[Rfam]
Source information:
A member of the RNA family "Small Cajal body specific RNA 3" from Oenanthe oenanthe, 145 nucleotides long. The source organism's lineage runs through Eukaryota, Metazoa, Saurischia, Coelurosauria and Oenanthe. Rfam links the family to the GO terms Cajal body, RNA processing and nucleolus. scaRNAs are a specific class of small nuclear RNAs which localise to the Cajal bodies and guide the modification of RNA polymerase II transcribed spliceosomal RNAs U1, U2, U4, U5 and U12. On this family, see Darzacq et al., EMBO J 2002: "Cajal body-specific small nuclear RNAs: a novel class of 2'-O-methylation and pseudouridylation guide RNAs". Pairs were carried over by alignment from the consensus structure, which was predicted with RNAalifold. Its Rfam clan is "SCARNA3 clan".

RNA sequence: ACUGGAAGCUGCUGGACCAGUUGGGGCCAGUCAUGGGCAAAAUUAAUAUUUUUUUGUCCUGUGUUGCAGUCUUCCUAGAGCAAAGUGGAGGUCUCUGUCUGCUUUAGGACAGACAACUAAAGCAGAUCGUUCCCCUCCUUACACG
Numbered sequence: 001a002c003u004g005g006a007a008g009c010u011g012c013u014g015g016a017c018c019a020g021u022u023g024g025g026g027c028c029a030g031u032c033a034u035g036g037g038c039a040a041a042a043u044u045a046a047u048a049u050u051u052u053u054u055u056g057u058c059c060u061g062u063g064u065u066g067c068a069g070u071c072u073u074c075c076u077a078g079a080g081c082a083a084a085g086u087g088g089a090g091g092u093c094u095c096u097g098u099c100u101g102c103u104u105u106a107g108g109a110c111a112g113a114c115a116a117c118u119a120a121a122g123c124a125g126a127u128c129g130u131u132c133c134c135c136u137c138c139u140u141a142c143a144c145g
Stems, first nucleotide, its partner, number of pairs: 004075003008070005035059004041053002087138005095129001097127003101123007